[Rfam]
RNA sequence: UUUGCCUCGGCAAGUCCUGUACAACCAGCUCCCUUUGAAUCCCCCAGGGUGGGAACACAGCAAGGGUAAAAGGUUGUAGCGGUGUGAUACAGGUCGCUUGCCACUUU
Numbered sequence: 001u002u003u004g005c006c007u008c009g010g011c012a013a014g015u016c017c018u019g020u021a022c023a024a025c026c027a028g029c030u031c032c033c034u035u036u037g038a039a040u041c042c043c044c045c046a047g048g049g050u051g052g053g054a055a056c057a058c059a060g061c062a063a064g065g066g067u068a069a070a071a072g073g074u075u076g077u078a079g080c081g082g083u084g085u086g087a088u089a090c091a092g093g094u095c096g097c098u099u100g101c102c103a104c105u106u107u
Stems, first nucleotide, its partner, number of pairs: 009102007017092005022086002024083002
RNA: Bacteroidales small SRP
Organism: Flavobacteriaceae bacterium UJ101